A member of the RNA family "mir-239 microRNA precursor family" from Gongylonema pulchrum, 70 nucleotides long.
The family has 12 seed sequences and 54 matches in Rfam 15.1.
[Rfam]
RNA sequence: GAAGCUUUGUACUUCGGCUAAGGUGCUGCUAUGCGUGUUGGCCAACAUCUUGGCUAGGUACAAUGCUCAA
Number, nucleotide and partner (000 for none) at each position: 001g000002a000003a067004g066005c065006u000007u063008u062009g061010u060011a059012c058013u000014u000015c000016g054017g000018c053019u052020a051021a050022g049023g048024u047025g000026c000027u044028g043029c041030u040031a039032u000033g000034c000035g000036u000037g000038u000039u031040g030041g029042c000043c028044a027045a000046c000047a024048u023049c022050u021051u020052g019053g018054c016055u000056a000057g000058g012059u011060a010061c009062a008063a007064u000065g005066c004067u003068c000069a000070a000
A reference for the family is Ruby et al. (2006), "Large-scale sequencing reveals 21U-RNAs and additional microRNAs and endogenous siRNAs in C. elegans", Cell.